[Rfam]
RNA sequence: UGCCUAAACCAUACGGCUAACCGGAUGGCAUGGCACAAAACCAUAGUGGGUACUGAUCCCGUCGUUCAGCAUCCCACUAUGGUCGUACGUCGAAAGGCGUAUGGGUGGCCGAAAGGCUGCC
Numbered sequence: 001u002g003c004c005u006a007a008a009c010c011a012u013a014c015g016g017c018u019a020a021c022c023g024g025a026u027g028g029c030a031u032g033g034c035a036c037a038a039a040a041c042c043a044u045a046g047u048g049g050g051u052a053c054u055g056a057u058c059c060c061g062u063c064g065u066u067c068a069g070c071a072u073c074c075c076a077c078u079a080u081g082g083u084c085g086u087a088c089g090u091c092g093a094a095a096g097g098c099g100u101a102u103g104g105g106u107g108g109c110c111g112a113a114a115g116g117c118u119g120c121c
Stems, first nucleotide, its partner, number of pairs: 001035004009028004014023002041082010053069004084103008104121006
This 121-nucleotide sequence belongs to the Rfam family "LOOT RNA". By type it is a small RNA. The base pairs follow the family's consensus structure, which is taken from published work.